[Rfam]
RNA sequence: AUACUUGGGUAAUCGCUGUAUGACUUUAUCAUACAGAGGAAAGUCCAUGCUCACACAAGCUGAGAUGCUUGUAGUGUUCGUGCCUGACGAAACCAUAAGUCAGGGUAGCAAUAGCUAACGGCAGGGAAAAUUCCUACGUCUUCAUGAUAUGGAAUGAAUACCUUGAAAGUGCCACAGUGACGGAGCCAAAAUAGAAAUAUUUUGGGUGGAACGAGGUAAACCCCACGAGUGAGCAACCCAAAUAUAGGUAGGGGCACUCUUCUAUGGGAAAUGAACCGAUGAAGAGGUCGUUUAUCGACAGAUAGAUGAUUACCACCGGAGUACGAGGUUGACCGCCGCUUGCAGUACAAUGGAACAGAACAUGGCUUACAAAG
Dot-bracket structure: ...(((((((((((.((((((.........))))))....[[[.[[[[[(((((((((((......)))))).....(((((((((((..........))))))(((((....)))).)((.(((.....((((...(((.....)))..))))......))).....(((((............((((((((....)))))))).........)))..))))))))))))))...(((...........)))...((((((..................))))))((((.....))))........))))))).(((..((((....................))))..))).......]]]]]]]].).)))
Numbered sequence: 001a002u003a004c005u006u007g008g009g010u011a012a013u014c015g016c017u018g019u020a021u022g023a024c025u026u027u028a029u030c031a032u033a034c035a036g037a038g039g040a041a042a043g044u045c046c047a048u049g050c051u052c053a054c055a056c057a058a059g060c061u062g063a064g065a066u067g068c069u070u071g072u073a074g075u076g077u078u079c080g081u082g083c084c085u086g087a088c089g090a091a092a093c094c095a096u097a098a099g100u101c102a103g104g105g106u107a108g109c110a111a112u113a114g115c116u117a118a119c120g121g122c123a124g125g126g127a128a129a130a131u132u133c134c135u136a137c138g139u140c141u142u143c144a145u146g147a148u149a150u151g152g153a154a155u156g157a158a159u160a161c162c163u164u165g166a167a168a169g170u171g172c173c174a175c176a177g178u179g180a181c182g183g184a185g186c187c188a189a190a191a192u193a194g195a196a197a198u199a200u201u202u203u204g205g206g207u208g209g210a211a212c213g214a215g216g217u218a219a220a221c222c223c224c225a226c227g228a229g230u231g232a233g234c235a236a237c238c239c240a241a242a243u244a245u246a247g248g249u250a251g252g253g254g255c256a257c258u259c260u261u262c263u264a265u266g267g268g269a270a271a272u273g274a275a276c277c278g279a280u281g282a283a284g285a286g287g288u289c290g291u292u293u294a295u296c297g298a299c300a301g302a303u304a305g306a307u308g309a310u311u312a313c314c315a316c317c318g319g320a321g322u323a324c325g326a327g328g329u330u331g332a333c334c335g336c337c338g339c340u341u342g343c344a345g346u347a348c349a350a351u352g353g354a355a356c357a358g359a360a361c362a363u364g365g366c367u368u369a370c371a372a373a374g
Stems, first nucleotide, its partner, number of pairs: 004374003007370001008314007016036006041368003045365005050233005055072006078228005083104006105119001106117004120223002123163003131154004138148003169221002171217003186205008237253003257286006287299004316353003321348004

A member of the RNA family "Bacterial RNase P class B" from Halobacillus salinus, 374 nucleotides long. The source organism's lineage runs through Bacteria, Bacillati, Bacillota, Bacillaceae and Halobacillus. The family's RNA type in Rfam is ribozyme. For this family Rfam cites "The Ribonuclease P Database" (Brown, Nucleic Acids Res, 1999).